A member of the RNA family "rpsB sRNA" from Nitratireductor pacificus, 103 nucleotides long. By type it is a small RNA. The organism belongs to Nitratireductor pacificus, within Bacteria.
RNA sequence: CACACACGGGCCAAUAGGUCUCGGCCGGGAGAAAUCCGGCUGGCGCCUCCGGUGGCGGUUCUCCGCCUGCAGGUUCGUGGAGGUUCAACCGGAAAGGAACUUU
Numbered sequence: 001c002a003c004a005c006a007c008g009g010g011c012c013a014a015u016a017g018g019u020c021u022c023g024g025c026c027g028g029g030a031g032a033a034a035u036c037c038g039g040c041u042g043g044c045g046c047c048u049c050c051g052g053u054g055g056c057g058g059u060u061c062u063c064c065g066c067c068u069g070c071a072g073g074u075u076c077g078u079g080g081a082g083g084u085u086c087a088a089c090c091g092g093a094a095a096g097g098a099a100c101u102u103u
Base pairs, nucleotide, nucleotide: 001082003080005079006078007077008076009075010074012073017047018046026038027037028036054067055066056065057064058063